Background: Rfam assigns this 143-nucleotide sequence from Helcococcus ovis to the family "glmS glucosamine-6-phosphate activated ribozyme aptamer". Rfam classes the family as a riboswitch.
[Rfam]
RNA sequence: AAAAUUAUUAAAGCGCCAGAUCCAUUUAUGGAUGACGAGGGACGGAGUUAUCGAAUUUCGGCGGAUGCUCCGAAGGUAUCACAGCCUAAGUACUCUACAAAUAUUUAGAGUAAUCUGAAUGACAAAUAGAGUAAAGUGAGUCU
Dot-bracket structure: ...................(((((....))))).........(((((...((((...))))......)))))..(.........).....((((((......(((((((....))))))).......))))))..........
The organism belongs to Helcococcus, within Bacteria.